[Rfam]
Shown here is a 75-nucleotide RNA from Ceutorhynchus assimilis, a member of the family "mir-133 microRNA precursor family".
About the family: mir-133 was first experimentally characterised in mouse and homologues have since been discovered in several other species.
A search with the family's covariance model found it, with a score of 61 bits.
The family's consensus secondary structure was predicted with PFOLD.
A reference for the family is Lagos-Quintana et al. (2002), "Identification of tissue-specific microRNAs from mouse", Curr Biol.
Gene Ontology terms of the family: miRNA-mediated post-transcriptional gene silencing and RISC complex.
RNA sequence: UAGCUUUAGCUGGUUGAUUUCGGGUCAAAUUGAAUUUUCGAAAAGCAUUUGGUCCCCUUCAACCAGCUGUCGUUG
Numbered sequence: 001u002a003g004c005u006u007u008a009g010c011u012g013g014u015u016g017a018u019u020u021c022g023g024g025u026c027a028a029a030u031u032g033a034a035u036u037u038u039c040g041a042a043a044a045g046c047a048u049u050u051g052g053u054c055c056c057c058u059u060c061a062a063c064c065a066g067c068u069g070u071c072g073u074u075g
Stems, first nucleotide, its partner, number of pairs: 003073002008068010022054002025052006